[Rfam]
RNA sequence: CAAAUAGUUCUGAAAAGUAAAUAUCAGUUGGUAAUUCUGGGCUAUUUUUGUAGUGACUUCCGGAAUUUCAACUGGUAUACAUUUUUCAGAUGCU
Number, nucleotide and partner (000 for none) at each position: 001c000002a000003a000004a000005u000006a000007g000008u000009u000010c000011u000012g000013a086014a085015a084016a083017g082018u081019a000020a000021a078022u077023a076024u075025c074026a073027g072028u071029u070030g069031g068032u000033a000034a066035u065036u064037c063038u062039g061040g060041g059042c000043u000044a000045u000046u000047u000048u000049u000050g000051u000052a000053g000054u000055g000056a000057c000058u000059u041060c040061c039062g038063g037064a036065a035066u034067u000068u031069c030070a029071a028072c027073u026074g025075g024076u023077a022078u021079a000080c000081a018082u017083u016084u015085u014086u013087c000088a000089g000090a000091u000092g000093c000094u000
The family of this 94-nucleotide RNA from Hermetia illucens is "mir-283 microRNA precursor family". A reference for the family is Weaver et al. (2007), "Computational and transcriptional evidence for microRNAs in the honey bee genome", Genome Biol. Lineage of the source: Eukaryota > Arthropoda > Hexapoda > Diptera > Hermetia.